A member of the RNA family "c-di-GMP-I riboswitch aptamer" from Syntrophotalea acetylenivorans, 75 nucleotides long. GEMM was predicted in a large-scale screen for bacterial structured RNA regulatory elements. The base pairs follow the family's consensus structure, which is taken from published work.
[Rfam]
RNA sequence: UCUAUUGGAUGGCAAAACUGGAGCAAUCCAGUGACGCAAAGCUGCGGGUCCUAAGUGGAUAGCCGGGCUACGAAA
Numbered sequence: 001u002c003u004a005u006u007g008g009a010u011g012g013c014a015a016a017a018c019u020g021g022a023g024c025a026a027u028c029c030a031g032u033g034a035c036g037c038a039a040a041g042c043u044g045c046g047g048g049u050c051c052u053a054a055g056u057g058g059a060u061a062g063c064c065g066g067g068c069u070a071c072g073a074a075a
Stems, first nucleotide, its partner, number of pairs: 012037002017032006040069004045065003048060003